[Rfam]
RNA sequence: AAUUGUAAAAUCUGUAAGUCACUCUGGAUAGGAGUGUCUGCUAAAUGACAGUAA
Numbered sequence: 001a002a003u004u005g006u007a008a009a010a011u012c013u014g015u016a017a018g019u020c021a022c023u024c025u026g027g028a029u030a031g032g033a034g035u036g037u038c039u040g041c042u043a044a045a046u047g048a049c050a051g052u053a054a
Stems, first nucleotide, its partner, number of pairs: 013043001014041003020036006
Shown here is a 54-nucleotide RNA from Megalops atlanticus, a member of the family "UnaL2 LINE 3' element". The base pairs follow the family's consensus structure, which is taken from published work. Lineage of the source: Eukaryota > Craniata > Gnathostomata > Elopiformes > Megalops. Rfam describes the family as follows. The eel long interspersed element (LINE) UnaL2 and its partner short interspersed element (SINE) share a conserved 3' tail containing a stem-loop that is critical for their retrotransposition. Presumably, the first step of retrotransposition is the recognition of their 3' tails by UnaL2-encoded reverse transcriptase. The match comes from Rfam's covariance-model search (60 bits). By type it is a cis-regulatory element.